[Rfam]
RNA sequence: UAAUAGCAAAGCAUAUUGCCGAAGACAGUAGGUGCUGAGAAAGCGUAACUCCAAUGGAUACCUACCGAGGAAUAUUAAGAAUCAUAGAUUUUAUGAAUGCUUAUCCCUCUUUGUCUAAUGGCAAAGAGGGUUUUUUAUUUGUAUA
Numbered sequence: 001u002a003a004u005a006g007c008a009a010a011g012c013a014u015a016u017u018g019c020c021g022a023a024g025a026c027a028g029u030a031g032g033u034g035c036u037g038a039g040a041a042a043g044c045g046u047a048a049c050u051c052c053a054a055u056g057g058a059u060a061c062c063u064a065c066c067g068a069g070g071a072a073u074a075u076u077a078a079g080a081a082u083c084a085u086a087g088a089u090u091u092u093a094u095g096a097a098u099g100c101u102u103a104u105c106c107c108u109c110u111u112u113g114u115c116u117a118a119u120g121g122c123a124a125a126g127a128g129g130g131u132u133u134u135u136u137a138u139u140u141g142u143a144u145a
Stems, first nucleotide, its partner, number of pairs: 028065006034044003105130010
Rfam assigns this 145-nucleotide sequence from Agathobacter ruminis to the family "Ribosomal protein L10 leader". The base pairs follow the family's consensus structure, which was predicted with CMfinder. The source organism's lineage runs through Bacteria, Bacillati, Lachnospirales, Lachnospiraceae and Agathobacter. Rfam describes the family as follows. This family is a putative r-protein leader autoregulatory structure found in B. subtilis and other low-GC Gram-positive bacteria. It is located in the 5' untranslated regions of mRNAs encoding ribosomal proteins L10 and L12 (rplJ-rplL). A Rho-independent transcription terminator structure that is probably involved in regulation is included at the 3' end. Rfam classes the family as a cis-regulatory leader.